The family of this 108-nucleotide RNA sequence from Rhizobium sp. NFR07 is "Rhizobiales sRNA Atu_At1".

[Rfam]
RNA sequence: UCGCGUGCUGUGUCAACCGGACGUGACAGGGAUGACGAACGCGAUGAUUUUUCCGGUUUCUCAUCGCGGCCAACGAAACGGCAGCCGAGCGUCUUACCUGUCCGGCCC
Numbered sequence: 001u002c003g004c005g006u007g008c009u010g011u012g013u014c015a016a017c018c019g020g021a022c023g024u025g026a027c028a029g030g031g032a033u034g035a036c037g038a039a040c041g042c043g044a045u046g047a048u049u050u051u052u053c054c055g056g057u058u059u060c061u062c063a064u065c066g067c068g069g070c071c072a073a074c075g076a077a078a079c080g081g082c083a084g085c086c087g088a089g090c091g092u093c094u095u096a097c098c099u100g101u102c103c104g105g106c107c108c
Stems, first nucleotide, its partner, number of pairs: 007106003011023004025102006034093004040068007069082003
A search with the family's covariance model found it, with a score of 116 bits. It is annotated as a small RNA. The literature on the family includes a 2012 paper in RNA Biol by Wilms et al., "Deep sequencing uncovers numerous small RNAs on all four replicons of the plant pathogen Agrobacterium tumefaciens". The organism belongs to Rhizobium, within Bacteria. The base pairs follow the family's consensus structure, which was predicted with CMfinder. Rfam 15.1 lists 200 matches to the family in 177 species.